[Rfam]
RNA sequence: AUGGCAUGGUGAUGAUGUUUACGAAUAUUUUCAUAUGAUAAUUCAUAUGAUGAUAAAAACCUCCUACUCAUUCUGA
Numbered sequence: 001a002u003g004g005c006a007u008g009g010u011g012a013u014g015a016u017g018u019u020u021a022c023g024a025a026u027a028u029u030u031u032c033a034u035a036u037g038a039u040a041a042u043u044c045a046u047a048u049g050a051u052g053a054u055a056a057a058a059a060c061c062u063c064c065u066a067c068u069c070a071u072u073c074u075g076a
Base pairs, nucleotide, nucleotide: 006071007070008069009068031052035046
The record is a 76-nucleotide RNA from Vigna radiata, which matches "Small nucleolar RNA Z105" in Rfam.
Lineage of the source: Eukaryota > Euphyllophyta > Spermatophyta > Mesangiospermae > Vigna radiata.
Gene Ontology terms of the family: RNA processing and nucleolus.
For this family Rfam cites "The high diversity of snoRNAs in plants: identification and comparative study of 120 snoRNA genes from Oryza sativa" (Chen et al., Nucleic Acids Res, 2003).
The family's consensus secondary structure was predicted with CMfinder.
It scores 59 bits against the family's covariance model.
It is annotated as a C/D-box small nucleolar RNA.